[Rfam]
RNA: mir-3492 microRNA precursor family
RNA sequence: GGUUUUCUAAAUCCAUGCUGAGAUUUCGUCAGACACCGACCACCAGGAGUGAUAAGACUUCCGAGAUAAGUGAAACG
Numbered sequence: 001g002g003u004u005u006u007c008u009a010a011a012u013c014c015a016u017g018c019u020g021a022g023a024u025u026u027c028g029u030c031a032g033a034c035a036c037c038g039a040c041c042a043c044c045a046g047g048a049g050u051g052a053u054a055a056g057a058c059u060u061c062c063g064a065g066a067u068a069a070g071u072g073a074a075a076c077g
Stems, first nucleotide, its partner, number of pairs: 002076005008070001011067003016063002020060003024057003028053003